[Rfam]
Shown here is a 92-nucleotide RNA from Pelotomaculum propionicicum, a member of the family "Selenocysteine transfer RNA". NCBI's taxonomy places the organism under Bacteria, Bacillati, Clostridia, Desulfotomaculaceae, Pelotomaculum. A search with the family's covariance model found it, with a score of 49 bits.
Nucleotides: 092
Base pairs, nucleotide, nucleotide: 001092002091003090004089005088006087007086008085011023012022013021014020024044025041026040027039028038029037046064047063048062049061050060068083069082070081072080
Number, partner (000 for none) and nucleotide at each position: 001092g002091a003090g004089g005088a006087g007086a008085a009000a010000u011023g012022g013021g014020g015000a016000u017000g018000g019000u020014c021013c022012c023011c024044c025041g026040c027039g028038g029037g030000c031000u032000u033000c034000a035000a036000a037029c038028c039027c040026g041025u042000u043000u044024g045000u046064c047063c048062g049061c050060c051000u052000g053000u054000c055000a056000g057000g058000c059000a060050g061049g062048c063047g064046g065000g066000a067000g068083u069082c070081g071000u072080g073000u074000u075000c076000g077000a078000a079000u080072c081070c082069g083068a084000c085008u086007u087006c088005u089004c090003c091002u092001c
The family's consensus secondary structure is taken from published work. Its Rfam clan is "tRNA clan".